[Rfam]
RNA: U8 small nucleolar RNA
Organism: Callorhinus ursinus
RNA sequence: UCGUCAGGUAGGAUAAUCCUUACCUGUUCCUCCUUCCGGAGGGCAGAUCGGAAUAUGAUGAUUGGAGCUUGCAUGAUACGUGAUUAGCGUCUCUGCGUGGCCGGGACUUGCAACACCCCGGUCGCUCCUGUCUGAU
Number, nucleotide and partner (000 for none) at each position: 001u000002c000003g000004u000005c000006a000007g000008g000009u000010a000011g000012g000013a000014u000015a000016a000017u000018c000019c000020u000021u000022a000023c000024c046025u045026g044027u000028u043029c042030c041031u040032c039033c038034u000035u000036c000037c000038g033039g032040a031041g030042g029043g028044c026045a025046g024047a000048u000049c000050g000051g000052a000053a000054u000055a000056u000057g000058a000059u000060g000061a000062u000063u000064g000065g000066a000067g000068c000069u000070u000071g000072c000073a000074u000075g093076a092077u000078a090079c089080g088081u086082g000083a000084u000085u000086a081087g000088c080089g079090u078091c000092u076093c075094u000095g000096c000097g125098u124099g123100g122101c121102c120103g119104g118105g117106a000107c000108u000109u000110g000111c000112a000113a000114c000115a000116c000117c105118c104119c103120g102121g101122u100123c099124g098125c097126u000127c000128c000129u000130g000131u000132c000133u000134g000135a000136u000